Small nucleolar RNA SNORD82: a 66-nucleotide RNA from Podarcis lilfordi.
snoRNA U82 or Z25 is found in both humans and mice.
It is annotated as a C/D-box small nucleolar RNA.
[Rfam]
RNA sequence: AGCACAGAUGAUGAUUAUUGGGACUUAAUACUGAUCUUGUGAUGUCUCUAGUAUGAGCUGAUGUGU
Numbered sequence: 001a002g003c004a005c006a007g008a009u010g011a012u013g014a015u016u017a018u019u020g021g022g023a024c025u026u027a028a029u030a031c032u033g034a035u036c037u038u039g040u041g042a043u044g045u046c047u048c049u050a051g052u053a054u055g056a057g058c059u060g061a062u063g064u065g066u
Base pairs, nucleotide, nucleotide: 002066003065004064005063006062
A search with the family's covariance model found it, with a score of 50 bits. On this family, see Galardi et al., Mol Cell Biol 2002: "Purified box C/D snoRNPs are able to reproduce site-specific 2'-O-methylation of target RNA in vitro". Rfam 15.1 lists 649 matches to the family in 590 species. Taxonomically the source falls in Podarcis (Eukaryota, Sarcopterygii, Amniota, Lacertinae).